[Rfam]
Rfam assigns this 131-nucleotide RNA from Sporosarcina sp. Te-1 to the family "FMN riboswitch aptamer (RFN element)". A search with the family's covariance model found it, with a score of 117 bits. About the family: The RFN element is a highly conserved domain that is found frequently in the 5'-untranslated regions of prokaryotic mRNAs that encode for flavin mononucleotide (FMN) biosynthesis and transport proteins. The family has 146 seed sequences and 6,230 matches in Rfam 15.1. The organism belongs to Sporosarcina, within Bacteria. Pairs were carried over by alignment from the consensus structure, which is taken from published work.
RNA sequence: AUUCAUCUUCGGGGCAGGGUGCAAUUCCCGACCGGCGGAAAUGGAAGAUUACUUCCUAGCCCGCGAGCGUAACAGCUGAUUCCGGUGAGAUUCCGGAGCCGACAGUAUAGUCUGGAUGGGAGAAGGUGAAG
Numbered sequence: 001a002u003u004c005a006u007c008u009u010c011g012g013g014g015c016a017g018g019g020u021g022c023a024a025u026u027c028c029c030g031a032c033c034g035g036c037g038g039a040a041a042u043g044g045a046a047g048a049u050u051a052c053u054u055c056c057u058a059g060c061c062c063g064c065g066a067g068c069g070u071a072a073c074a075g076c077u078g079a080u081u082c083c084g085g086u087g088a089g090a091u092u093c094c095g096g097a098g099c100c101g102a103c104a105g106u107a108u109a110g111u112c113u114g115g116a117u118g119g120g121a122g123a124a125g126g127u128g129a130a131g
Stems, first nucleotide, its partner, number of pairs: 003129008017029003031111002033101002035064004059099002067076002081097005103114003